[Rfam]
RNA sequence: CUCCAACGCUAGGGGUGUUACCGAUUGUCGGUGACUGAGAAAAACCCUUUGAACCUGAAAGAGAUAAUGCUCGCGCAGGGAAGGCUUAUGAAAAAACAU
Numbered sequence: 001c002u003c004c005a006a007c008g009c010u011a012g013g014g015g016u017g018u019u020a021c022c023g024a025u026u027g028u029c030g031g032u033g034a035c036u037g038a039g040a041a042a043a044a045c046c047c048u049u050u051g052a053a054c055c056u057g058a059a060a061g062a063g064a065u066a067a068u069g070c071u072c073g074c075g076c077a078g079g080g081a082a083g084g085c086u087u088a089u090g091a092a093a094a095a096a097c098a099u
Stems, first nucleotide, its partner, number of pairs: 006087001008085003011048004016042001017035007054079004061072003
RNA: TPP riboswitch aptamer (THI element)